[Rfam]
RNA sequence: UCCAUGGUGACGUGGAAUCUGAAGGAAGCUCGAGGCAUACCUCUGGUCUGACGAACAGAAAUCAUAUAAGAGGCAACGUAUGAGGAUAAGACUGCGAAAGAAGUUAAAGUCCAAUAACUACAGUUUCAUACGGUGUAUAUGUGGCAGAUAGAUGGAGGGAAAGAGUUCACA
Numbered sequence: 001u002c003c004a005u006g007g008u009g010a011c012g013u014g015g016a017a018u019c020u021g022a023a024g025g026a027a028g029c030u031c032g033a034g035g036c037a038u039a040c041c042u043c044u045g046g047u048c049u050g051a052c053g054a055a056c057a058g059a060a061a062u063c064a065u066a067u068a069a070g071a072g073g074c075a076a077c078g079u080a081u082g083a084g085g086a087u088a089a090g091a092c093u094g095c096g097a098a099a100g101a102a103g104u105u106a107a108a109g110u111c112c113a114a115u116a117a118c119u120a121c122a123g124u125u126u127c128a129u130a131c132g133g134u135g136u137a138u139a140u141g142u143g144g145c146a147g148a149u150a151g152a153u154g155g156a157g158g159g160a161a162a163g164a165g166u167u168c169a170c171a
Stems, first nucleotide, its partner, number of pairs: 001016006030169001032167001036163001040158006046149005062144006073136003077132007084112004090105004
Group II catalytic intron D1-D4-3: a 171-nucleotide RNA from Ornithinibacillus halophilus.
For this family Rfam cites "The ins and outs of group II introns" (Bonen and Vogel, Trends Genet, 2001).